The family of this 434-nucleotide part of an RNA from Zymoseptoria ardabiliae is "Eukaryotic large subunit ribosomal RNA". The family has 88 seed sequences and 107,465 matches in Rfam 15.1. Pairs were carried over by alignment from the consensus structure, which is taken from published work.
[Rfam]
RNA sequence: AGUAGUAGUAAAUACUUAAAUAAGAACUUUAAGGACUAAAGUAGGGAAAGGUUCCGUAUAAAUAGUAGUUAGAUACGGGUUAGUCGAUCCUAAGCUAUAGGGAAAUUCCGUUUUAAAGUAUAUACUCCGUACUACCCGGGGAAAGGGAAACCGGUUAAUAUUCCGGUACCUAGAUAUAGAUUAUCCGCGGUAACGUAACUAAAGGUAGAGACGUCGGUAGGGGCCCCGGGAAGAGUUCUCUUUUCUUCUUAACGGUCCGUUACCCUAAAAUCGGUUUAUCCGGAGCUAGGGUUUAACAACCGGUAGAGCGGCGUACCUUUAUACCGUCCGGUACGCUCCCGACGAUCCUUAAAAAUCUACCGGAAGGAAUAAUUUUUACGCUAGGUCGUACUUAUAACCGUAGUAGGUCUCUAAGGUAAAUAGCCUCUAGUUAA
Numbered sequence: 001a002g003u004a005g006u007a008g009u010a011a012a013u014a015c016u017u018a019a020a021u022a023a024g025a026a027c028u029u030u031a032a033g034g035a036c037u038a039a040a041g042u043a044g045g046g047a048a049a050g051g052u053u054c055c056g057u058a059u060a061a062a063u064a065g066u067a068g069u070u071a072g073a074u075a076c077g078g079g080u081u082a083g084u085c086g087a088u089c090c091u092a093a094g095c096u097a098u099a100g101g102g103a104a105a106u107u108c109c110g111u112u113u114u115a116a117a118g119u120a121u122a123u124a125c126u127c128c129g130u131a132c133u134a135c136c137c138g139g140g141g142a143a144a145g146g147g148a149a150a151c152c153g154g155u156u157a158a159u160a161u162u163c164c165g166g167u168a169c170c171u172a173g174a175u176a177u178a179g180a181u182u183a184u185c186c187g188c189g190g191u192a193a194c195g196u197a198a199c200u201a202a203a204g205g206u207a208g209a210g211a212c213g214u215c216g217g218u219a220g221g222g223g224c225c226c227c228g229g230g231a232a233g234a235g236u237u238c239u240c241u242u243u244u245c246u247u248c249u250u251a252a253c254g255g256u257c258c259g260u261u262a263c264c265c266u267a268a269a270a271u272c273g274g275u276u277u278a279u280c281c282g283g284a285g286c287u288a289g290g291g292u293u294u295a296a297c298a299a300c301c302g303g304u305a306g307a308g309c310g311g312c313g314u315a316c317c318u319u320u321a322u323a324c325c326g327u328c329c330g331g332u333a334c335g336c337u338c339c340c341g342a343c344g345a346u347c348c349u350u351a352a353a354a355a356u357c358u359a360c361c362g363g364a365a366g367g368a369a370u371a372a373u374u375u376u377u378a379c380g381c382u383a384g385g386u387c388g389u390a391c392u393u394a395u396a397a398c399c400g401u402a403g404u405a406g407g408u409c410u411c412u413a414a415g416g417u418a419a420a421u422a423g424c425c426u427c428u429a430g431u432u433a434a
Stems, first nucleotide, its partner, number of pairs: 015033006034432004043412004049392002054078006063071002085388003089146002095139001097111002100109003120133001150167005170384004175380001177378003180374001187196003204361006213346004218341001220339005226331003229249006253302004262292006271283004309326003313322003398407002414426004
Rfam's curators put it in the seed alignment.